[Rfam]
RNA sequence: AAAAAGGGCUUCUGUCAUGAGUGGCACACAUAGAGCAGCUUGACUGCUCUACGUGCGGAAUCGACAUCAAGAGAUUUCAGAAGCAUAGCUUUUUGGUACUUGGGCAGCUAGUGAUCGUUGGUCCCGGCCCCCGC
Numbered sequence: 001a002a003a004a005a006g007g008g009c010u011u012c013u014g015u016c017a018u019g020a021g022u023g024g025c026a027c028a029c030a031u032a033g034a035g036c037a038g039c040u041u042g043a044c045u046g047c048u049c050u051a052c053g054u055g056c057g058g059a060a061u062c063g064a065c066a067u068c069a070a071g072a073g074a075u076u077u078c079a080g081a082a083g084c085a086u087a088g089c090u091u092u093u094u095g096g097u098a099c100u101u102g103g104g105c106a107g108c109u110a111g112u113g114a115u116c117g118u119u120g121g122u123c124c125c126g127g128c129c130c131c132c133g134c
Stems, first nucleotide, its partner, number of pairs: 008084005013026005027055003031051008057078006102132003107128003111124001113123004